[Rfam]
RNA sequence: CACACGUGGGGUUUGGGACGUUUCGGGAGACAUCCGUUGCGUUCCGCCCGGUGGCAGGGUCAUCCGAGCCUGCUGUUUUCCCCACGGAGGUUCAACCGGAAAAGGAUAAACGGC
Numbered sequence: 001c002a003c004a005c006g007u008g009g010g011g012u013u014u015g016g017g018a019c020g021u022u023u024c025g026g027g028a029g030a031c032a033u034c035c036g037u038u039g040c041g042u043u044c045c046g047c048c049c050g051g052u053g054g055c056a057g058g059g060u061c062a063u064c065c066g067a068g069c070c071u072g073c074u075g076u077u078u079u080c081c082c083c084a085c086g087g088a089g090g091u092u093c094a095a096c097c098g099g100a101a102a103a104g105g106a107u108a109a110a111c112g113g114c
Stems, first nucleotide, its partner, number of pairs: 001089001003087001005086007015045002024036003053074006